[Rfam]
RNA sequence: GAUGAAGCACAAUGAAGGGGUGAUCAAUGCGCCAGUUCUAUCUGAAAUAUUUUACCGCGACAGAAAGAUUGUCCUGGUUGGCUUGCCUGAGCGCGCCGCAGCGCUUAAAAAUACUGGAAGAACUGAUGCAGUGGGAGGUGAAAACCUGACUCCGGAUAGGCAGACAUCAUGUGUGACUGAGUAUUGGUGCAGGCUAUAGCCUCGAUUCACCGCGCCAGCAGGUAUUAUCUGCUGGCUUUUUUC
Dot-bracket structure: ((((..((..(............((.(((((.(((((((.((((.(...........((((((.(......).)).))))...(...(((.(((......))).)))...)).).)))))))))).)))).).))..........(........).)..))...)))).............................................((((((((.......)))))))).......
This 243-nucleotide sequence from Citrobacter rodentium belongs to the Rfam family "SgrS RNA". A search with the family's covariance model found it, with a score of 167 bits. Taxonomically the source falls in Citrobacter rodentium (Bacteria, Pseudomonadota, Enterobacterales, Enterobacteriaceae). Pairs were carried over by alignment from the consensus structure, which was predicted with RNAalifold. Rfam's curators write: In sugar transport-related sRNA (SgrS) is induced under conditions of glucose phosphate stress in E.coli. This small RNA acts to negatively regulate the translation and stability of the ptsG mRNA, which encodes the major glucose transporter in E. coli.